[Rfam]
RNA sequence: CAACCCCGUGCGGGAGAGUCCCCGGCCUGACCGGGGCGCCGAAGGAGCAACCUCCCCGGAAUCUCUCAGGCACCCGUACCGCUCGGGCGAG
Number, nucleotide and partner (000 for none) at each position: 001c000002a000003a000004c000005c000006c086007c085008g084009u000010g082011c081012g080013g079014g000015a000016g000017a000018g000019u000020c036021c035022c034023c033024g000025g000026c000027c000028u000029g000030a000031c000032c000033g023034g022035g021036g020037c000038g071039c070040c069041g067042a066043a000044g000045g065046a064047g063048c000049a000050a000051c059052c058053u000054c000055c000056c000057c000058g052059g051060a000061a000062u000063c047064u046065c045066u042067c041068a000069g040070g039071c038072a000073c000074c000075c000076g000077u000078a000079c013080c012081g011082c010083u000084c008085g007086g006087g000088c000089g000090a000091g000
RNA: Glycine riboswitch aptamer